[Rfam]
RNA sequence: GUCAAUCACCCCGGCACACGCCGGAGCUCCUGAAGUAUUCACGAGGUCGAGAUUGACCAGACCCAGCGCUUUAGGGCGCUACGUUGUGUGGAGACAGUACACUCACCGUCGAAUGCUUCCUCAGUUCGACGCUCUGGAAGUCGCAGCAGCAGACAAGCCCCGGGUAGGUACGAAACGGGCUGCGACGGAAGCGAAAGCUUCGCCUGCCGCACAAGAUGGUCGAGGGGAGCCAUAC
Numbered sequence: 001g002u003c004a005a006u007c008a009c010c011c012c013g014g015c016a017c018a019c020g021c022c023g024g025a026g027c028u029c030c031u032g033a034a035g036u037a038u039u040c041a042c043g044a045g046g047u048c049g050a051g052a053u054u055g056a057c058c059a060g061a062c063c064c065a066g067c068g069c070u071u072u073a074g075g076g077c078g079c080u081a082c083g084u085u086g087u088g089u090g091g092a093g094a095c096a097g098u099a100c101a102c103u104c105a106c107c108g109u110c111g112a113a114u115g116c117u118u119c120c121u122c123a124g125u126u127c128g129a130c131g132c133u134c135u136g137g138a139a140g141u142c143g144c145a146g147c148a149g150c151a152g153a154c155a156a157g158c159c160c161c162g163g164g165u166a167g168g169u170a171c172g173a174a175a176c177g178g179g180c181u182g183c184g185a186c187g188g189a190a191g192c193g194a195a196a197g198c199u200u201c202g203c204c205u206g207c208c209g210c211a212c213a214a215g216a217u218g219g220u221c222g223a224g225g226g227g228a229g230c231c232a233u234a235c
Stems, first nucleotide, its partner, number of pairs: 001057007010026001012023004027046002030043001060221004065080005084214008093205001103137002107131008115231001117229006140186008
RNA: HNH endonuclease-associated RNA and ORF (HEARO) RNA